[Rfam]
RNA: MIR396 microRNA precursor family
RNA sequence: UUCUAUGUUCUUCCACAGCUUUCUUGAACUGCAUAUGGUUCUUGAUCUUUUAAAUCGAUCAUCAACAAUUUGAAUUCGUUAUUUGCGGUUCAAUGAAGCUGUGGGAAGACAGAGAAA
Numbered sequence: 001u002u003c004u005a006u007g008u009u010c011u012u013c014c015a016c017a018g019c020u021u022u023c024u025u026g027a028a029c030u031g032c033a034u035a036u037g038g039u040u041c042u043u044g045a046u047c048u049u050u051u052a053a054a055u056c057g058a059u060c061a062u063c064a065a066c067a068a069u070u071u072g073a074a075u076u077c078g079u080u081a082u083u084u085g086c087g088g089u090u091c092a093a094u095g096a097a098g099c100u101g102u103g104g105g106a107a108g109a110c111a112g113a114g115a116a117a
Stems, first nucleotide, its partner, number of pairs: 003114002006111002013104003017100006024093004029088005